[Rfam]
RNA sequence: GCCGAGCUAAUUAACAAUAGCUUAUAACCCAAGUGGGGGCAUGAAGAAUGAAGGGACAAUGGCUCAGUCCAUGGAGUAUGGCCUGAUGUGGCAAGCAACUGGCCUGCCCGUUCCAAGCCAAGAGCUGAACCAUGCGACCUAAAUGAAGGUUCGGGUUUCAUGGUUCCUAAAGCGGAGGGCACAGCGUGAGGCUGGUUUCACAGAGCAGCGAUCACCUCCCUCUCUUGGCAGUGGAAGGAUUACAGGCUAGUGUCACACAGACCUAUCAUGGCUCCAUGGCUUGACCCUAACUGGACCUUCAUUUUU
Numbered sequence: 001g002c003c004g005a006g007c008u009a010a011u012u013a014a015c016a017a018u019a020g021c022u023u024a025u026a027a028c029c030c031a032a033g034u035g036g037g038g039g040c041a042u043g044a045a046g047a048a049u050g051a052a053g054g055g056a057c058a059a060u061g062g063c064u065c066a067g068u069c070c071a072u073g074g075a076g077u078a079u080g081g082c083c084u085g086a087u088g089u090g091g092c093a094a095g096c097a098a099c100u101g102g103c104c105u106g107c108c109c110g111u112u113c114c115a116a117g118c119c120a121a122g123a124g125c126u127g128a129a130c131c132a133u134g135c136g137a138c139c140u141a142a143a144u145g146a147a148g149g150u151u152c153g154g155g156u157u158u159c160a161u162g163g164u165u166c167c168u169a170a171a172g173c174g175g176a177g178g179g180c181a182c183a184g185c186g187u188g189a190g191g192c193u194g195g196u197u198u199c200a201c202a203g204a205g206c207a208g209c210g211a212u213c214a215c216c217u218c219c220c221u222c223u224c225u226u227g228g229c230a231g232u233g234g235a236a237g238g239a240u241u242a243c244a245g246g247c248u249a250g251u252g253u254c255a256c257a258c259a260g261a262c263c264u265a266u267c268a269u270g271g272c273u274c275c276a277u278g279g280c281u282u283g284a285c286c287c288u289a290a291c292u293g294g295a296c297c298u299u300c301a302u303u304u305u306u
Base pairs, nucleotide, nucleotide: 001040002039003038004023005022006021007020008019009018011016028037029036030035044306045305046304047303048302049301050300051299052298053297054296057293058292060289061288062286064284065283066282067281069279070278071277072276073275074274075273076272077271080263081262083260084259085258088256089255090254091253094251099250100249101248102247103246104245105244106243108238109237111236112235113234114233115232117229118228119227120226121225122224123223124222127166128165129164130163131162132161133160134159136157137156138155139154140153142151143150144149167172174219175218176217177216178215183212185210186209187208192203193202194201
RNA: Plant signal recognition particle RNA